Pseudomonas rpsL leader: a 118-nucleotide RNA from Thiopseudomonas alkaliphila. The base pairs follow the family's consensus structure, which is taken from published work.
RNA sequence: AGAGUGGUAAUUAACUUGACUGGGUACAAGAGUCUCAUUAGACUCUUGUACCCUUGAUUUUGGCUGAAUUUUAUUUGGCCAUUUUUUCGUGUCGAAAGACAACAGUGGAGCAAAUAGA
Numbered sequence: 001a002g003a004g005u006g007g008u009a010a011u012u013a014a015c016u017u018g019a020c021u022g023g024g025u026a027c028a029a030g031a032g033u034c035u036c037a038u039u040a041g042a043c044u045c046u047u048g049u050a051c052c053c054u055u056g057a058u059u060u061u062g063g064c065u066g067a068a069u070u071u072u073a074u075u076u077g078g079c080c081a082u083u084u085u086u087u088c089g090u091g092u093c094g095a096a097a098g099a100c101a102a103c104a105g106u107g108g109a110g111c112a113a114a115u116a117g118a
Stems, first nucleotide, its partner, number of pairs: 006016003022053003026049006034041002061081009087113001089111002091100003

NCBI's taxonomy places the organism under Bacteria, Pseudomonadati, Pseudomonadota, Pseudomonadaceae, Thiopseudomonas. The family's RNA type in Rfam is cis-regulatory leader. For this family Rfam cites "Premature terminator analysis sheds light on a hidden world of bacterial transcriptional attenuation" (Naville and Gautheret, Genome Biol, 2010).